[Rfam]
RNA sequence: CGUCUUCCAACGCUAAUCCGGCUUAGUACGAGAGGAACCGCCGGUUCAGAUAAUUGGUAACGCGCUCGGCUGAAAAGCCGAUGGCGCAAAGCUACCAUCUGUCGGAUAAUAACUGAACGCCUCUAAGUUAGAAUCCAUGGCGAGAGGGAGACUGCGUGGUUGGUACGCAUUACGCGUCAAUCUAUAGCUUCGGCUAAGUGCAUACUCGAUAAUAAUUCUUAUGUGUAUCGACUCUGAUCCCUUGCAGACGACUUGAAUUUGAGGAAGAGUGGUGUAAGAAGCAGAGAGGCCUUGUUGCCUCGAUCUCUUGAGCCUCAGCUCUCUCCUUUGGAUUAUA
Numbered sequence: 001c002g003u004c005u006u007c008c009a010a011c012g013c014u015a016a017u018c019c020g021g022c023u024u025a026g027u028a029c030g031a032g033a034g035g036a037a038c039c040g041c042c043g044g045u046u047c048a049g050a051u052a053a054u055u056g057g058u059a060a061c062g063c064g065c066u067c068g069g070c071u072g073a074a075a076a077g078c079c080g081a082u083g084g085c086g087c088a089a090a091g092c093u094a095c096c097a098u099c100u101g102u103c104g105g106a107u108a109a110u111a112a113c114u115g116a117a118c119g120c121c122u123c124u125a126a127g128u129u130a131g132a133a134u135c136c137a138u139g140g141c142g143a144g145a146g147g148g149a150g151a152c153u154g155c156g157u158g159g160u161u162g163g164u165a166c167g168c169a170u171u172a173c174g175c176g177u178c179a180a181u182c183u184a185u186a187g188c189u190u191c192g193g194c195u196a197a198g199u200g201c202a203u204a205c206u207c208g209a210u211a212a213u214a215a216u217u218c219u220u221a222u223g224u225g226u227a228u229c230g231a232c233u234c235u236g237a238u239c240c241c242u243u244g245c246a247g248a249c250g251a252c253u254u255g256a257a258u259u260u261g262a263g264g265a266a267g268a269g270u271g272g273u274g275u276a277a278g279a280a281g282c283a284g285a286g287a288g289g290c291c292u293u294g295u296u297g298c299c300u301c302g303a304u305c306u307c308u309u310g311a312g313c314c315u316c317a318g319c320u321c322u323c324u325c326c327u328u329u330g331g332a333u334u335a336u337a
Stems, first nucleotide, its partner, number of pairs: 002152007011142004016046001018044005047101005055094003062087004066081006104136002110130005160231010235335005241255001244252001261328005267321003271314002278308001280306002283304001286301005